[Rfam]
RNA sequence: CAGCGAAACGGCAAACCCUCCGCGAGGAGGGGACGCAAAGCCACGGGGCCCUCAGGGUCAGCCGGGCUACCGAAA
Dot-bracket structure: ..........((...((((((....))))))..[))..((((.((((((.......))).]))))))).......
Numbered sequence: 001c002a003g004c005g006a007a008a009c010g011g012c013a014a015a016c017c018c019u020c021c022g023c024g025a026g027g028a029g030g031g032g033a034c035g036c037a038a039a040g041c042c043a044c045g046g047g048g049c050c051c052u053c054a055g056g057g058u059c060a061g062c063c064g065g066g067c068u069a070c071c072g073a074a075a
Stems, first nucleotide, its partner, number of pairs: 011036002016031006034061001039068004044064003047059003
About this RNA: This 75-nucleotide RNA sequence from Cellulomonas soli belongs to the Rfam family "c-di-GMP-I-GGC riboswitch aptamer". The family's consensus secondary structure is taken from published work. A search with the family's covariance model found it, with a score of 62 bits.